[Rfam]
RNA sequence: UAAUGAGGUAGAGGUGCAAUGCGAAUGAUUACACUGUGGAGCUAGGGAAGCGUUGAAACAGCUGGAAAGGUCAAUUUGCCGAAGUGAAGAAGUGAAGGGGCCCACUUCAUCUUCGCUGGUUCGUUAUUGAAUAAAUAACGAACUGUCACUGCCAAAGCAGUGGAGGACUACUUAAACG
Numbered sequence: 001u002a003a004u005g006a007g008g009u010a011g012a013g014g015u016g017c018a019a020u021g022c023g024a025a026u027g028a029u030u031a032c033a034c035u036g037u038g039g040a041g042c043u044a045g046g047g048a049a050g051c052g053u054u055g056a057a058a059c060a061g062c063u064g065g066a067a068a069g070g071u072c073a074a075u076u077u078g079c080c081g082a083a084g085u086g087a088a089g090a091a092g093u094g095a096a097g098g099g100g101c102c103c104a105c106u107u108c109a110u111c112u113u114c115g116c117u118g119g120u121u122c123g124u125u126a127u128u129g130a131a132u133a134a135a136u137a138a139c140g141a142a143c144u145g146u147c148a149c150u151g152c153c154a155a156a157g158c159a160g161u162g163g164a165g166g167a168c169u170a171c172u173u174a175a176a177c178g
Stems, first nucleotide, its partner, number of pairs: 006173006016079004023072002032064002034061004083117008092108001094106001118144011146163007
Notes: The record is a 178-nucleotide sequence from Anaerobacillus arseniciselenatis, which matches "Lysine riboswitch aptamer" in Rfam. The organism belongs to Anaerobacillus, within Bacteria. A search with the family's covariance model found it, with a score of 103 bits. Pairs were carried over by alignment from the consensus structure, which is taken from published work.